Shown here is a 141-nucleotide RNA sequence from Serratia symbiotica, a member of the family "Yersinia sRNA 155(RyfD)". On this family, see Righetti et al., Proc Natl Acad Sci U S A 2016: "Temperature-responsive in vitro RNA structurome of Yersinia pseudotuberculosis". The base pairs follow the family's consensus structure. The match comes from Rfam's covariance-model search (113 bits).
RNA sequence: UAGGACGAUCCAACGACGCAUGGCGUAGUACCAAAAAUAUUGAGUCGAAAUAACCUUGAAAAUUUGAGGUGCGACCUCAUUUUAAUCUCCAGUAGCAAUUUCGACCCACUUUGGAGGUGUUAUGCGUCUGGAUCGUCUUAC
Numbered sequence: 001u002a003g004g005a006c007g008a009u010c011c012a013a014c015g016a017c018g019c020a021u022g023g024c025g026u027a028g029u030a031c032c033a034a035a036a037a038u039a040u041u042g043a044g045u046c047g048a049a050a051u052a053a054c055c056u057u058g059a060a061a062a063u064u065u066g067a068g069g070u071g072c073g074a075c076c077u078c079a080u081u082u083u084a085a086u087c088u089c090c091a092g093u094a095g096c097a098a099u100u101u102c103g104a105c106c107c108a109c110u111u112u113g114g115a116g117g118u119g120u121u122a123u124g125c126g127u128c129u130g131g132a133u134c135g136u137c138u139u140a141c
Base pairs, nucleotide, nucleotide: 002139003138004137005136006135007134008133009132010131011130012129015128016127017126018125019124020123022121023120024119025045026044030040054069055068056067057066058065059064071080073078085118086117087116088115089114090113091112092111

Record summary: By type it is a small RNA.